RNA sequence: GAUCAGGAAGUUCGGCCCCACGCCCUUCGACGCGGCCGACUGGCAACCCGGGAUUCGCCCUGUGGUGCCCUCGAAGGAAGAUCCGCCCUGCGGCCACUCCGGUCCGGGGAAAGAUCGCGAG
Numbered sequence: 001g002a003u004c005a006g007g008a009a010g011u012u013c014g015g016c017c018c019c020a021c022g023c024c025c026u027u028c029g030a031c032g033c034g035g036c037c038g039a040c041u042g043g044c045a046a047c048c049c050g051g052g053a054u055u056c057g058c059c060c061u062g063u064g065g066u067g068c069c070c071u072c073g074a075a076g077g078a079a080g081a082u083c084c085g086c087c088c089u090g091c092g093g094c095c096a097c098u099c100c101g102g103u104c105c106g107g108g109g110a111a112a113g114a115u116c117g118c119g120a121g
Stems, first nucleotide, its partner, number of pairs: 001083004009041001012039005021032002042069003047065002051060002087109003092104004